[Rfam]
RNA: mir-4900 microRNA precursor family
RNA sequence: GUUAAGAGUUUUUCUUCGUCUUUGCGCCUAUGUGACUGUAGAACCAUAGACGCAUGGCGAAGAAACGCCCUUUCA
Numbered sequence: 001g002u003u004a005a006g007a008g009u010u011u012u013u014c015u016u017c018g019u020c021u022u023u024g025c026g027c028c029u030a031u032g033u034g035a036c037u038g039u040a041g042a043a044c045c046a047u048a049g050a051c052g053c054a055u056g057g058c059g060a061a062g063a064a065a066c067g068c069c070c071u072u073u074c075a
Base pairs, nucleotide, nucleotide: 005071006070008068009067011065012064013063014062015061016060017059019057020056022054025052026051028049029048031046032044033043